[Rfam]
Nucleotides: 140
Base pairs, nucleotide, nucleotide: 003043004042005016006015017039022037023036049065050064051063052062069087070086071085072084073083074082093106094105095104096103114133115132116131117130118129119128120127121126
Number, partner (000 for none) and nucleotide at each position: 001000c002000c003043g004042g005016c006015c007000g008000c009000g010000u011000u012000a013000a014000c015006g016005g017039c018000u019000c020000c021000u022037u023036a024000a025000c026000g027000a028000u029000u030000c031000u032000a033000a034000a035000g036023u037022a038000u039017g040000a041000a042004u043003c044000a045000c046000a047000u048000c049065a050064u051063c052062c053000a054000g055000u056000u057000u058000g059000u060000c061000u062052g063051g064050a065049u066000g067000u068000c069087g070086a071085g072084u073083g074082g075000c076000u077000c078000c079000u080000g081000c082074c083073c084072a085071c086070u087069c088000u089000g090000u091000u092000u093106g094105a095104c096103g097000c098000c099000u100000c101000c102000c103096u104095g105094u106093u107000g108000a109000c110000c111000u112000u113000c114133g115132a116131g117130c118129c119128g120127c121126c122000c123000u124000u125000g126121g127120g128119c129118g130117g131116c132115u133114c134000u135000u136000u137000u138000u139000u140000u